[Rfam]
RNA sequence: GAUUUCGAUUGGUGUAAACCCAAUCACCCCAAUUUGCAAUUUAAGAUGAGAAACACUUUUCCAUUGGUAACAAAUGGUUACCCACUAAGCUGAGAAAAUACUAU
Numbered sequence: 001g002a003u004u005u006c007g008a009u010u011g012g013u014g015u016a017a018a019c020c021c022a023a024u025c026a027c028c029c030c031a032a033u034u035u036g037c038a039a040u041u042u043a044a045g046a047u048g049a050g051a052a053a054c055a056c057u058u059u060u061c062c063a064u065u066g067g068u069a070a071c072a073a074a075u076g077g078u079u080a081c082c083c084a085c086u087a088a089g090c091u092g093a094g095a096a097a098a099u100a101c102u103a104u
Stems, first nucleotide, its partner, number of pairs: 009023004059094003064084001066082006
Source information: A member of the RNA family "Plastid-rps12 3UTR RNA" from Abrus precatorius, 104 nucleotides long. Rfam's curators write: Plastid rpl20 is a non-coding RNA (ncRNA) recognised in plastids.